[Rfam]
RNA sequence: AUAUACACUGAGUGGCCAGAUUAUUGUGCUCUCAGAGAUCAUGAUAAUCUGGCCACUCAGUGUUUAG
Numbered sequence: 001a002u003a004u005a006c007a008c009u010g011a012g013u014g015g016c017c018a019g020a021u022u023a024u025u026g027u028g029c030u031c032u033c034a035g036a037g038a039u040c041a042u043g044a045u046a047a048u049c050u051g052g053c054c055a056c057u058c059a060g061u062g063u064u065u066a067g
Base pairs, nucleotide, nucleotide: 005063006062007061008060009059010058011057012056013055014054015053016052017051019049020048021047022046023045024044025043026042027041028040
Rfam assigns this 67-nucleotide RNA from Pipistrellus kuhlii to the family "mir-9256 microRNA precursor family". The base pairs follow the family's consensus structure, which was predicted with RNAalifold. The match comes from Rfam's covariance-model search (81 bits).